Bacterial large subunit ribosomal RNA: a 594-nucleotide part of an RNA from Krasilnikoviella flava. It scores 2766 bits against the family's covariance model. The literature on the family includes a 2001 paper in Science by Yusupov et al., "Crystal structure of the ribosome at 5.5 A resolution". Taxonomically the source falls in Krasilnikoviella (Bacteria, Actinomycetota, Micrococcales, Promicromonosporaceae).
[Rfam]
RNA sequence: UUUUAAGGGCACAGGGUGGAUGCCUUGGCACUAGGAGCCGAAGAAGGACGUUGUAGCCUGCGAUAAGCCUCGGGGAGUUGGCAAACGAGCUGUGAUCCGAGGAUGUCCGAAUGGGGGAACCCGGCCAGGGUCAUGCCUGGUCACCUGCAUCUGAAUACAUAGGGUGUAGGGGGGAACGUCGGGAAGUGAAACAUCUCAGUACCGACAGGAAGAGAUAUUCCGUGAGUAGUGGCGAGCGAAAGCGGAUGAGGCCAAACCGUGUGUGUGUCAAGCUGUCAGGCGUUGCACAUGCGGGGUUGUGGGACCUUCUGACCAGAUCUGACAGUCUGGUAGCCAGUAAGAAAGCCGUGUCAUAGUCGAACCGCAUUGAAAGGCGGACCGUAGUGGGUGUGAGUCCCGUAGACGAAAUGGUGCGGCCUGGUUGAGGGGAUCCCAAGUAGCACGGGGCCCGAGAAAUCUCGUGUGAAUCUGGCAAGACCACUUGCUAAGCCUAAAUACUACCUAGUGACCGAUAGCGGACAAGUACCGUGAGGGAAAGGUGAAAAGUACCCCGGGAGGGGAGUGAAAUAGUACCUGAAACCGUGUGCCUACAAU
Numbered sequence: 001u002u003u004u005a006a007g008g009g010c011a012c013a014g015g016g017u018g019g020a021u022g023c024c025u026u027g028g029c030a031c032u033a034g035g036a037g038c039c040g041a042a043g044a045a046g047g048a049c050g051u052u053g054u055a056g057c058c059u060g061c062g063a064u065a066a067g068c069c070u071c072g073g074g075g076a077g078u079u080g081g082c083a084a085a086c087g088a089g090c091u092g093u094g095a096u097c098c099g100a101g102g103a104u105g106u107c108c109g110a111a112u113g114g115g116g117g118a119a120c121c122c123g124g125c126c127a128g129g130g131u132c133a134u135g136c137c138u139g140g141u142c143a144c145c146u147g148c149a150u151c152u153g154a155a156u157a158c159a160u161a162g163g164g165u166g167u168a169g170g171g172g173g174g175a176a177c178g179u180c181g182g183g184a185a186g187u188g189a190a191a192c193a194u195c196u197c198a199g200u201a202c203c204g205a206c207a208g209g210a211a212g213a214g215a216u217a218u219u220c221c222g223u224g225a226g227u228a229g230u231g232g233c234g235a236g237c238g239a240a241a242g243c244g245g246a247u248g249a250g251g252c253c254a255a256a257c258c259g260u261g262u263g264u265g266u267g268u269c270a271a272g273c274u275g276u277c278a279g280g281c282g283u284u285g286c287a288c289a290u291g292c293g294g295g296g297u298u299g300u301g302g303g304a305c306c307u308u309c310u311g312a313c314c315a316g317a318u319c320u321g322a323c324a325g326u327c328u329g330g331u332a333g334c335c336a337g338u339a340a341g342a343a344a345g346c347c348g349u350g351u352c353a354u355a356g357u358c359g360a361a362c363c364g365c366a367u368u369g370a371a372a373g374g375c376g377g378a379c380c381g382u383a384g385u386g387g388g389u390g391u392g393a394g395u396c397c398c399g400u401a402g403a404c405g406a407a408a409u410g411g412u413g414c415g416g417c418c419u420g421g422u423u424g425a426g427g428g429g430a431u432c433c434c435a436a437g438u439a440g441c442a443c444g445g446g447g448c449c450c451g452a453g454a455a456a457u458c459u460c461g462u463g464u465g466a467a468u469c470u471g472g473c474a475a476g477a478c479c480a481c482u483u484g485c486u487a488a489g490c491c492u493a494a495a496u497a498c499u500a501c502c503u504a505g506u507g508a509c510c511g512a513u514a515g516c517g518g519a520c521a522a523g524u525a526c527c528g529u530g531a532g533g534g535a536a537a538g539g540u541g542a543a544a545a546g547u548a549c550c551c552c553g554g555g556a557g558g559g560g561a562g563u564g565a566a567a568u569a570g571u572a573c574c575u576g577a578a579a580c581c582g583u584g585u586g587c588c589u590a591c592a593a594u
Base pairs, nucleotide, nucleotide: 007589008588009587010586011585012584013583015581016580022574023539024538027510028509029507030506031505032504033503034502035501036499037498038173039172046108047107048106049062050061051060068102069101070100071099072098073097074096077090078089079088113122114121115120123142124141125140126139127138128137129136144170145169146168147167148166149165150164151163152162177208178206179205180204181203182202188195189194218495219246220245221244222243223242229237230236249492250491251490252489257294258293259292260291261290262289263288264287265286266285267284301434302433303432305428306427307426308425309424343419345417346416347415348414349413350412351411352410353409354408356404357403358402362377363376364375365374380384386398387397388396440464441463442462443461444460445459446458447457471486472485473484474483475482526533527532549560550559551558552557